The family of this 226-nucleotide RNA sequence from Altererythrobacter lutimaris is "permuted transfer-messenger RNA".
The source organism's lineage runs through Bacteria, Pseudomonadati, Pseudomonadota, Erythrobacteraceae and Altererythrobacter.
The match comes from Rfam's covariance-model search (134 bits).
The family's RNA type in Rfam is non-coding RNA gene.
Rfam's curators write: Bacterial tmRNA, also known as 10Sa RNA or SsrA, is named for its dual tRNA and mRNA-like properties. Its role is to liberate the mRNA from a stalled ribosome. To accomplish this part of the tmRNA is used as a reading frame that ends in a translation stop signal. The broken mRNA is replaced in the ribosome by the tmRNA and translation of the tmRNA leads to addition of a proteolysis tag to the incomplete protein enabling recognition by a protease.
[Rfam]
RNA sequence: GGCGAUAAAUUGCGCUGUGUAAUAGAUGCAAGGGACCCGGGGGCAGUACCCGGCGGCUCCACCAUAAAGCCCGGAAAUCGAACGAGAAAUCCGGGCCUCAUGAAGGGGCCGAACUAGGAUCGACCUGUGUUGAAAAGCAGUGUUUUUGCCCGGGCUGAGUAACCCGUAAAACUGUUCAAAACUCAUAAGUGCAAACGAUAACGAAGCACUCGCUCUCGCAGCGUAA
Numbered sequence: 001g002g003c004g005a006u007a008a009a010u011u012g013c014g015c016u017g018u019g020u021a022a023u024a025g026a027u028g029c030a031a032g033g034g035a036c037c038c039g040g041g042g043g044c045a046g047u048a049c050c051c052g053g054c055g056g057c058u059c060c061a062c063c064a065u066a067a068a069g070c071c072c073g074g075a076a077a078u079c080g081a082a083c084g085a086g087a088a089a090u091c092c093g094g095g096c097c098u099c100a101u102g103a104a105g106g107g108g109c110c111g112a113a114c115u116a117g118g119a120u121c122g123a124c125c126u127g128u129g130u131u132g133a134a135a136a137g138c139a140g141u142g143u144u145u146u147u148g149c150c151c152g153g154g155c156u157g158a159g160u161a162a163c164c165c166g167u168a169a170a171a172c173u174g175u176u177c178a179a180a181a182c183u184c185a186u187a188a189g190u191g192c193a194a195a196c197g198a199u200a201a202c203g204a205a206g207c208a209c210u211c212g213c214u215c216u217c218g219c220a221g222c223g224u225a226a
Stems, first nucleotide, its partner, number of pairs: 001150005015140004027129003031126003037053005054111007151166004